[Rfam]
RNA sequence: UGAAAGUCUCGGACAGUAGUUAUGGAUGAGUCAUGCUUGCAUGAACGAAUUCAUAACUAUUGGACGAGCUAAACGGCAUGAGCAAGUAGGGCGGUAGCCCGGAUUGCGAAUGUCGUUGUCAACUGCGGGAGUGCAAUAGCACGGAGCAGUUGACUUUCA
Dot-bracket structure: (((((((((((...(((((((((((((..((((((....))))).)..)))))))))))))...))))...((((((((..((((...((((....))))...))))..))))))))..(((((((....((((....))))...))))))))))))))
Numbered sequence: 001u002g003a004a005a006g007u008c009u010c011g012g013a014c015a016g017u018a019g020u021u022a023u024g025g026a027u028g029a030g031u032c033a034u035g036c037u038u039g040c041a042u043g044a045a046c047g048a049a050u051u052c053a054u055a056a057c058u059a060u061u062g063g064a065c066g067a068g069c070u071a072a073a074c075g076g077c078a079u080g081a082g083c084a085a086g087u088a089g090g091g092c093g094g095u096a097g098c099c100c101g102g103a104u105u106g107c108g109a110a111u112g113u114c115g116u117u118g119u120c121a122a123c124u125g126c127g128g129g130a131g132u133g134c135a136a137u138a139g140c141a142c143g144g145a146g147c148a149g150u151u152g153a154c155u156u157u158c159a
Stems, first nucleotide, its partner, number of pairs: 001159007008068004015061013030046001031044005072117008082107004089100004120152007131142004